[Rfam]
Source information
Rfam assigns this 359-nucleotide part of an RNA from Halopiger xanaduensis to the family "Archaeal small subunit ribosomal RNA". Clan: SSU clan. It is one of the family's seed sequences. On this family, see Cannone et al., BMC Bioinformatics 2002: "The comparative RNA web (CRW) site: an online database of comparative sequence and structure information for ribosomal, intron, and other RNAs". Taxonomically the source falls in Halopiger xanaduensis (Archaea, Methanobacteriota, Halobacteria, Halobacteriales).

RNA sequence: GGCCUAAAGCGUCCGUAGCUGGCCAGGCAAGUCCAUCGGGAAAUCCGCGCGCCCAACGCGCGGGCGUCCGGUGGAACCUGCUUGGCUUGGGACCGGAAGACCUGAGGGGUACGUCCGGGGUAGGAGUGAAAUCCCGUAAUCCUGGACGGACCACCGGUGGCGAAAGCGCCUCAGGAAGACGGAUCCGACGGUGAGGGACGAAAGCUCGGGUCACGAACCGGAUUAGAUACCCGGGUAGUCCGAGCUGUAAACGAUGUCUGCUAGGUGUGGCACAGGCUACGAGCCUGUGCUGUGCCGUAGGGAAGCCGUGAAGCAGACCGCCUGGGAAGUACGUCCGCAAGGAUGAAACUUAAAGGAAU
Numbered sequence: 001g002g003c004c005u006a007a008a009g010c011g012u013c014c015g016u017a018g019c020u021g022g023c024c025a026g027g028c029a030a031g032u033c034c035a036u037c038g039g040g041a042a043a044u045c046c047g048c049g050c051g052c053c054c055a056a057c058g059c060g061c062g063g064g065c066g067u068c069c070g071g072u073g074g075a076a077c078c079u080g081c082u083u084g085g086c087u088u089g090g091g092a093c094c095g096g097a098a099g100a101c102c103u104g105a106g107g108g109g110u111a112c113g114u115c116c117g118g119g120g121u122a123g124g125a126g127u128g129a130a131a132u133c134c135c136g137u138a139a140u141c142c143u144g145g146a147c148g149g150a151c152c153a154c155c156g157g158u159g160g161c162g163a164a165a166g167c168g169c170c171u172c173a174g175g176a177a178g179a180c181g182g183a184u185c186c187g188a189c190g191g192u193g194a195g196g197g198a199c200g201a202a203a204g205c206u207c208g209g210g211u212c213a214c215g216a217a218c219c220g221g222a223u224u225a226g227a228u229a230c231c232c233g234g235g236u237a238g239u240c241c242g243a244g245c246u247g248u249a250a251a252c253g254a255u256g257u258c259u260g261c262u263a264g265g266u267g268u269g270g271c272a273c274a275g276g277c278u279a280c281g282a283g284c285c286u287g288u289g290c291u292g293u294g295c296c297g298u299a300g301g302g303a304a305g306c307c308g309u310g311a312a313g314c315a316g317a318c319c320g321c322c323u324g325g326g327a328a329g330u331a332c333g334u335c336c337g338c339a340a341g342g343a344u345g346a347a348a349c350u351u352a353a354a355g356g357a358a359u
Base pairs, nucleotide, nucleotide: 001322002321003320009319011199012198013197014196016193018192019191020190022086023085024084025083026082027081028080030079031078032075033074034073035072036071037070038069039068040067045063046062047061048060049059050058051057090186091185092184093182094181095180101175102174103173104172105171106170107169108152109151112148113147114146115145116144117143118142119141123134124133125132160167161166204245205244206243207242208241209240213239214238218234219233220232221231256318257317258316259315260314261313264296265295266294267293268292269291270290271289272288273287274286275285276284277283300307301306324351325350326349333344334343335342336341